[Rfam]
RNA sequence: UUGGGUGGCUGAAUUAGAGAUCGGCGCCUGUUUUUUUAUCUAUAAUGUUGGAGUAUUACAAUGUCUCUAAGUGUUGAAGCUAAAGCUAAAAUCGUAGCAGACUUCGGUCGUGGCACU
Numbered sequence: 001u002u003g004g005g006u007g008g009c010u011g012a013a014u015u016a017g018a019g020a021u022c023g024g025c026g027c028c029u030g031u032u033u034u035u036u037u038a039u040c041u042a043u044a045a046u047g048u049u050g051g052a053g054u055a056u057u058a059c060a061a062u063g064u065c066u067c068u069a070a071g072u073g074u075u076g077a078a079g080c081u082a083a084a085g086c087u088a089a090a091a092u093c094g095u096a097g098c099a100g101a102c103u104u105c106g107g108u109c110g111u112g113g114c115a116c117u
Stems, first nucleotide, its partner, number of pairs: 008025005048070006
The family of this 117-nucleotide RNA from Pectobacterium atrosepticum is "Ribosomal S15 leader". The base pairs follow the family's consensus structure, which is taken from published work. Gene Ontology term of the family: regulation of translation, ncRNA-mediated. The sequence is in the family's curated seed alignment. The E. coli Ribosomal S15 gene 5' UTR can form two alternative structures. One that is a series of three hairpins, The other includes a pseudoknot. This structure causes translational regulation of the S15 protein. A reference for the family is Benard et al. (1996), "Pseudoknot and translational control in the expression of the S15 ribosomal protein", Biochimie. By type it is a cis-regulatory leader.